RNA sequence: GCCAAGUGAUGUUUAUUAGAUGGCAUUAGCACUCAGUGCAAAGAUGACCUUCAUCUAUCACCCCAGGCUGAUGGCU
Numbered sequence: 001g002c003c004a005a006g007u008g009a010u011g012u013u014u015a016u017u018a019g020a021u022g023g024c025a026u027u028a029g030c031a032c033u034c035a036g037u038g039c040a041a042a043g044a045u046g047a048c049c050u051u052c053a054u055c056u057a058u059c060a061c062c063c064c065a066g067g068c069u070g071a072u073g074g075c076u
Base pairs, nucleotide, nucleotide: 001075002074003073004072029039030038031037032036
RNA: Small nucleolar RNA SNORD83
Organism: Strix occidentalis